[Rfam]
RNA sequence: GAAGAUCCUAAAAUACAGCCUUAUAUAAUUGCGAGAAUAAGGCUCGCAAGUCUCUACCAGGCAGCCGUAAACUGCCUGACUAUGGGAGAAGGCAUCUAGGUA
Numbered sequence: 001g002a003a004g005a006u007c008c009u010a011a012a013a014u015a016c017a018g019c020c021u022u023a024u025a026u027a028a029u030u031g032c033g034a035g036a037a038u039a040a041g042g043c044u045c046g047c048a049a050g051u052c053u054c055u056a057c058c059a060g061g062c063a064g065c066c067g068u069a070a071a072c073u074g075c076c077u078g079a080c081u082a083u084g085g086g087a088g089a090a091g092g093c094a095u096c097u098a099g100g101u102a
Stems, first nucleotide, its partner, number of pairs: 020086006029049007058078007
The family of this 102-nucleotide sequence from Halarsenatibacter silvermanii is "Purine riboswitch aptamer". NCBI's taxonomy places the organism under Bacteria, Bacillati, Clostridia, Halarsenatibacteraceae, Halarsenatibacter.